mir-16 microRNA precursor family: a 139-nucleotide RNA from Xenopus laevis.
On this family, see Calin et al., Proc Natl Acad Sci U S A 2002: "Frequent deletions and down-regulation of micro- RNA genes miR15 and miR16 at 13q14 in chronic lymphocytic leukemia".
Clan: mir-15 clan.
Rfam links the family to the GO terms miRNA-mediated post-transcriptional gene silencing and RISC complex.
The organism belongs to Xenopus, within Eukaryota.

RNA sequence: AAAAUACUUCAGCAGCACUCCGAUUAUGGUGAAAAAAUUGGUACUUUAUUCGUGCCUAAAGCUAAGCGACGUUUAGAGCUUUUCCAGCCCUUUAUCAAGCAAUUUUUUCACCAUAAUCGGAGUGCUGCUGAAGUAUUUU
Numbered sequence: 001a002a003a004a005u006a007c008u009u010c011a012g013c014a015g016c017a018c019u020c021c022g023a024u025u026a027u028g029g030u031g032a033a034a035a036a037a038u039u040g041g042u043a044c045u046u047u048a049u050u051c052g053u054g055c056c057u058a059a060a061g062c063u064a065a066g067c068g069a070c071g072u073u074u075a076g077a078g079c080u081u082u083u084c085c086a087g088c089c090c091u092u093u094a095u096c097a098a099g100c101a102a103u104u105u106u107u108u109c110a111c112c113a114u115a116a117u118c119g120g121a122g123u124g125c126u127g128c129u130g131a132a133g134u135a136u137u138u139u
Base pairs, nucleotide, nucleotide: 001139002138003137005135006134007133011129012128013127014126015125016124017123018122020119022118023117024116025115026114027113028112029111030110031109032108033107034106035105036104037103038102039101040100